[Rfam]
RNA: Bacillaceae-1 RNA
RNA sequence: GAUACCGGAACGCCGACUAAGAACGCCACGUCAUGUGGCAACAUCGACGUCAGCACAUCCUGUGCA
Numbered sequence: 001g002a003u004a005c006c007g008g009a010a011c012g013c014c015g016a017c018u019a020a021g022a023a024c025g026c027c028a029c030g031u032c033a034u035g036u037g038g039c040a041a042c043a044u045c046g047a048c049g050u051c052a053g054c055a056c057a058u059c060c061u062g063u064g065c066a
Stems, first nucleotide, its partner, number of pairs: 011049002014046003025039005053065004